Record summary: Shown here is a 149-nucleotide RNA from Candidatus Protofrankia datiscae, a member of the family "c-di-AMP riboswitch aptamer (ydaO/yuaA leader)". Lineage of the source: Bacteria > Bacillati > Actinomycetota > Frankiaceae > Protofrankia.
RNA sequence: GUCCGACGAAAACCCAAACUUGUGGCAGGAACGGGGGACCCACUUCUGGGCGCCGAUAUCGGGCGUCCUCGGGGUGAAGCCGCAAAUGCGGCCGGGCAGUCCCAGCCCGAACCCGACAGCUCACUUCGCAGGCGUGGGGAAGGGCAUAA
Numbered sequence: 001g002u003c004c005g006a007c008g009a010a011a012a013c014c015c016a017a018a019c020u021u022g023u024g025g026c027a028g029g030a031a032c033g034g035g036g037g038a039c040c041c042a043c044u045u046c047u048g049g050g051c052g053c054c055g056a057u058a059u060c061g062g063g064c065g066u067c068c069u070c071g072g073g074g075u076g077a078a079g080c081c082g083c084a085a086a087u088g089c090g091g092c093c094g095g096g097c098a099g100u101c102c103c104a105g106c107c108c109g110a111a112c113c114c115g116a117c118a119g120c121u122c123a124c125u126u127c128g129c130a131g132g133c134g135u136g137g138g139g140a141a142g143g144g145c146a147u148a149a
Stems, first nucleotide, its partner, number of pairs: 004134002007131001013029002032128005041071001072114003080091004094108004